This 77-nucleotide RNA from Chironomus riparius belongs to the Rfam family "mir-932 microRNA precursor family". The family has 14 seed sequences and 136 matches in Rfam 15.1. It scores 63 bits against the family's covariance model. A reference for the family is Berezikov et al. (2010), "Evolutionary flux of canonical microRNAs and mirtrons in Drosophila", Nat Genet.

RNA sequence: UUUAUUUUCAAUUCCGUAGUGCAUUUGCAGUGUGCAUUAAAUAUCAACUGCAAGCACGGCGGAAGUGAAGAUAAAUU
Numbered sequence: 001u002u003u004a005u006u007u008u009c010a011a012u013u014c015c016g017u018a019g020u021g022c023a024u025u026u027g028c029a030g031u032g033u034g035c036a037u038u039a040a041a042u043a044u045c046a047a048c049u050g051c052a053a054g055c056a057c058g059g060c061g062g063a064a065g066u067g068a069a070g071a072u073a074a075a076u077u
Stems, first nucleotide, its partner, number of pairs: 006070005013063005020056003025053005